[Rfam]
A member of the RNA family "A. fumigatus snoRNA Afu_263" from Paracoccidioides brasiliensis, 92 nucleotides long.
Pairs were carried over by alignment from the consensus structure.
Gene Ontology terms of the family: nucleolus and RNA processing.
By type it is a C/D-box small nucleolar RNA.

RNA sequence: CUUUAUGAUGAUUCCCAAGUUUUAAGCAUAGUUCAACUGAAGGUCUCCGGAUAUUGAACGACAAACCUUACCAUCUUUCAUCCUUUCUGAAC
Numbered sequence: 001c002u003u004u005a006u007g008a009u010g011a012u013u014c015c016c017a018a019g020u021u022u023u024a025a026g027c028a029u030a031g032u033u034c035a036a037c038u039g040a041a042g043g044u045c046u047c048c049g050g051a052u053a054u055u056g057a058a059c060g061a062c063a064a065a066c067c068u069u070a071c072c073a074u075c076u077u078u079c080a081u082c083c084u085u086u087c088u089g090a091a092c
Stems, first nucleotide, its partner, number of pairs: 006018001009017002031059005043052003